[Rfam]
RNA: Glycine riboswitch aptamer
RNA sequence: AACAAAAUCUCUGGAGAGUCUCAUAAGUGAGCGCCGAAGGUGUACGGCUAUAAGAAAGAACAGCCAAUCUCUCAGGCAAAAGGACAGAGCUUUAUAA
Numbered sequence: 001a002a003c004a005a006a007a008u009c010u011c012u013g014g015a016g017a018g019u020c021u022c023a024u025a026a027g028u029g030a031g032c033g034c035c036g037a038a039g040g041u042g043u044a045c046g047g048c049u050a051u052a053a054g055a056a057a058g059a060a061c062a063g064c065c066a067a068u069c070u071c072u073c074a075g076g077c078a079a080a081a082g083g084a085c086a087g088a089g090c091u092u093u094a095u096a097a
Stems, first nucleotide, its partner, number of pairs: 006092002009089005020031004033077003036073002040071001042069001046064001